RNA sequence: GGAUGUGAGGGUGAUCUGGCUGCGACAUCUAUUACCCCAUUGAUUGCCAGGGUUGAUUUGGCUGAUUUGGCUGGCUAGGCUGGUGUUCCCUUCCUCCCUCACCGCUCCAUCUGCAUCCCUCCUGAAGCUGCACACCUGGUCAAAGAGGAUGACCUUCCCUCAUAGAGGCGUACUGUUCAUCAGUCUAAGGGUGUAGAGUAGCUGCGCUCCCCUGCUAGAACCUCCAAACAGGCUCAAGGUUCAUUUGUAGGAAAGCAUAUGGUAGUCAAGCUUCCAAGACUGCAGACACAGUUGUAAAGAGUUUCCACUCUUUAC
Numbered sequence: 001g002g003a004u005g006u007g008a009g010g011g012u013g014a015u016c017u018g019g020c021u022g023c024g025a026c027a028u029c030u031a032u033u034a035c036c037c038c039a040u041u042g043a044u045u046g047c048c049a050g051g052g053u054u055g056a057u058u059u060g061g062c063u064g065a066u067u068u069g070g071c072u073g074g075c076u077a078g079g080c081u082g083g084u085g086u087u088c089c090c091u092u093c094c095u096c097c098c099u100c101a102c103c104g105c106u107c108c109a110u111c112u113g114c115a116u117c118c119c120u121c122c123u124g125a126a127g128c129u130g131c132a133c134a135c136c137u138g139g140u141c142a143a144a145g146a147g148g149a150u151g152a153c154c155u156u157c158c159c160u161c162a163u164a165g166a167g168g169c170g171u172a173c174u175g176u177u178c179a180u181c182a183g184u185c186u187a188a189g190g191g192u193g194u195a196g197a198g199u200a201g202c203u204g205c206g207c208u209c210c211c212c213u214g215c216u217a218g219a220a221c222c223u224c225c226a227a228a229c230a231g232g233c234u235c236a237a238g239g240u241u242c243a244u245u246u247g248u249a250g251g252a253a254a255g256c257a258u259a260u261g262g263u264a265g266u267c268a269a270g271c272u273u274c275c276a277a278g279a280c281u282g283c284a285g286a287c288a289c290a291g292u293u294g295u296a297a298a299g300a301g302u303u304u305c306c307a308c309u310c311u312u313u314a315c
Stems, first nucleotide, its partner, number of pairs: 001108003005102007013093002018090002024087006032079002035074002037070003042067004046062003117170001118168004122139003127135001140162001142160001147158003201271003207265002210262002213259002223252003228248005294315008

This 315-nucleotide RNA from Phalacrocorax carbo belongs to the Rfam family "7SK RNA". The family is grouped with related families in Rfam's "7SK clan". The source organism's lineage runs through Eukaryota, Teleostomi, Sauria, Aves and Phalacrocorax. The match comes from Rfam's covariance-model search (256 bits). About the family: 7SK was discovered as an abundant small nuclear RNA in the mid-70s but a possible function has only recently been suggested. Two independent studies have found that 7SK RNA binds the CDK9/cyclin T complex (known as elongation factor P-TEFb). P-TEFb activates transcription by phosphorylating the C-terminal domain of RNA polymerase II. This process is negatively regulated by the 7SK RNP. The secondary structure of 7SK RNA shown here was proposed by Wasserman and Steitz on the basis of chemical modification and enzymatic cleavage experiments. This family contains a number of annotated pseudogenes and 7SK derived repeats. The threshold is artificially high to minimise the pseudogene count.